RNA: Plasmodium RNA of unknown function RUF2
RNA sequence: UCUAUUGAACGAUUCGAAGAGUUACUAUUCAAAAUAUUUUCAUUUAAAUAUUUUUAAAAAAAAAUAAUAACGUCAAAUUCGUUCAUAUAACAAAUGUAUAUACGGUGGCAUUUAAAAUUUUUAAUUUUAUAAAUGUCAAUCCAUAUAUAUCACAGCAGC
Numbered sequence: 001u002c003u004a005u006u007g008a009a010c011g012a013u014u015c016g017a018a019g020a021g022u023u024a025c026u027a028u029u030c031a032a033a034a035u036a037u038u039u040u041c042a043u044u045u046a047a048a049u050a051u052u053u054u055u056a057a058a059a060a061a062a063a064a065u066a067a068u069a070a071c072g073u074c075a076a077a078u079u080c081g082u083u084c085a086u087a088u089a090a091c092a093a094a095u096g097u098a099u100a101u102a103c104g105g106u107g108g109c110a111u112u113u114a115a116a117a118u119u120u121u122u123a124a125u126u127u128u129a130u131a132a133a134u135g136u137c138a139a140u141c142c143a144u145a146u147a148u149a150u151c152a153c154a155g156c157a158g159c
Stems, first nucleotide, its partner, number of pairs: 006085006021071004026066004037060004042055001096150007104142002106138004111132002115128003